[Rfam]
RNA sequence: GGGCUUUCAAGUCACUAGUGGUUCCGUUUAGUAGAUGAUUGUGCAUUGUUUCAAAAUGGUGCCCUAGUGACUACAAAGCCC
Numbered sequence: 001g002g003g004c005u006u007u008c009a010a011g012u013c014a015c016u017a018g019u020g021g022u023u024c025c026g027u028u029u030a031g032u033a034g035a036u037g038a039u040u041g042u043g044c045a046u047u048g049u050u051u052c053a054a055a056a057u058g059g060u061g062c063c064c065u066a067g068u069g070a071c072u073a074c075a076a077a078g079c080c081c
Stems, first nucleotide, its partner, number of pairs: 001081007010072009020063003024059006031052001033051007
RNA: mir-224 microRNA precursor family